[Rfam]
RNA sequence: CAGGACUCCAUUGUGCUUGAUCUAACCAUGCAGUGUCUCCGGUCCAUGGUUGUACCAAGCACCUUGGAGAUCUG
Numbered sequence: 001c002a003g004g005a006c007u008c009c010a011u012u013g014u015g016c017u018u019g020a021u022c023u024a025a026c027c028a029u030g031c032a033g034u035g036u037c038u039c040c041g042g043u044c045c046a047u048g049g050u051u052g053u054a055c056c057a058a059g060c061a062c063c064u065u066g067g068a069g070a071u072c073u074g
Base pairs, nucleotide, nucleotide: 001074002073003072004071006069007068008067009066013062014061015060016059017058018057019056024051025050026049027048028047029046030045
Rfam assigns this 74-nucleotide RNA sequence from Muraenolepis orangiensis to the family "mir-218 microRNA precursor family". On this family, see Chen et al., Genes Dev 2005: "The developmental miRNA profiles of zebrafish as determined by small RNA cloning".